[Rfam]
RNA sequence: UCAAAUGCAAAGAAAAGAAGGAGUAAAUCUACUGAUUUUGCACAGAGAGAGGGAAUAGCUGAGACCCCUUGGAAUAGGCAGAUUGAAGCAGUCUUGGAGCAUAAAUCUUGAACGUAUUUUACUAUUAGAGAUUUACGGUAGCGACGUUAUAGCUAAGGAUUACCGGAGAAGCAGAUUUUAUCUGUAAAUUAGGGUGGUACCGCGAAUAAUACUCGCCCCUAUG
Numbered sequence: 001u002c003a004a005a006u007g008c009a010a011a012g013a014a015a016a017g018a019a020g021g022a023g024u025a026a027a028u029c030u031a032c033u034g035a036u037u038u039u040g041c042a043c044a045g046a047g048a049g050a051g052g053g054a055a056u057a058g059c060u061g062a063g064a065c066c067c068c069u070u071g072g073a074a075u076a077g078g079c080a081g082a083u084u085g086a087a088g089c090a091g092u093c094u095u096g097g098a099g100c101a102u103a104a105a106u107c108u109u110g111a112a113c114g115u116a117u118u119u120u121a122c123u124a125u126u127a128g129a130g131a132u133u134u135a136c137g138g139u140a141g142c143g144a145c146g147u148u149a150u151a152g153c154u155a156a157g158g159a160u161u162a163c164c165g166g167a168g169a170a171g172c173a174g175a176u177u178u179u180a181u182c183u184g185u186a187a188a189u190u191a192g193g194g195u196g197g198u199a200c201c202g203c204g205a206a207u208a209a210u211a212c213u214c215g216c217c218c219c220u221a222u223g
Stems, first nucleotide, its partner, number of pairs: 007100002015095004026084005038073002049070005103134007136146002171185006191220004202216004
Rfam assigns this 223-nucleotide RNA from Peptacetobacter hiranonis to the family "T-box leader". The base pairs follow the family's consensus structure, which is taken from published work. Lineage of the source: Bacteria > Bacillota > Clostridia > Peptacetobacter > Peptacetobacter hiranonis. The match comes from Rfam's covariance-model search (121 bits). By type it is a cis-regulatory leader.